[Rfam]
RNA sequence: CUCCGAAAAGAGUAAACCCAUCGCAAGGUGGGGACACAAAGCCGACGGGUGCCGCUGGAGCGGGACGGCCGGGUUGCCGGA
Numbered sequence: 001c002u003c004c005g006a007a008a009a010g011a012g013u014a015a016a017c018c019c020a021u022c023g024c025a026a027g028g029u030g031g032g033g034a035c036a037c038a039a040a041g042c043c044g045a046c047g048g049g050u051g052c053c054g055c056u057g058g059a060g061c062g063g064g065a066c067g068g069c070c071g072g073g074u075u076g077c078c079g080g081a
Base pairs, nucleotide, nucleotide: 012037013036017032018031019030020029021028022027040075041074042073043072046071047070048069049066050065052063053062054061055060
RNA: c-di-GMP-I riboswitch aptamer
Organism: Geobacter sulfurreducens